[Rfam]
RNA sequence: CCAGGGGCUCGCGCCCCUGGCUGCAUCAUGCCGCCCCUCUGGGGCU
Numbered sequence: 001c002c003a004g005g006g007g008c009u010c011g012c013g014c015c016c017c018u019g020g021c022u023g024c025a026u027c028a029u030g031c032c033g034c035c036c037c038u039c040u041g042g043g044g045c046u
Stems, first nucleotide, its partner, number of pairs: 001020008033045005
RNA: Acido-Lenti-1 RNA